Record summary: Shown here is a 79-nucleotide RNA from Mus musculus, a member of the family "mir-3473 microRNA precursor family". NCBI's taxonomy places the organism under Eukaryota, Theria, Glires, Rodentia, Mus. The match comes from Rfam's covariance-model search (78 bits). Its family is annotated with miRNA-mediated post-transcriptional gene silencing, RISC complex and cellular response to mechanical stimulus in the Gene Ontology. Rfam 15.1 lists 1,094 matches to the family in 20 species.
[Rfam]
RNA sequence: ACCGCUGAGCCAUCUUUCCAGCCCCCUAAACAUUUAUUUUAGAAGGCAAGAUUUUGGGCUGGAAAGAUGGCUCAGUGGU
Numbered sequence: 001a002c003c004g005c006u007g008a009g010c011c012a013u014c015u016u017u018c019c020a021g022c023c024c025c026c027u028a029a030a031c032a033u034u035u036a037u038u039u040u041a042g043a044a045g046g047c048a049a050g051a052u053u054u055u056g057g058g059c060u061g062g063a064a065a066g067a068u069g070g071c072u073c074a075g076u077g078g079u
Stems, first nucleotide, its partner, number of pairs: 002078023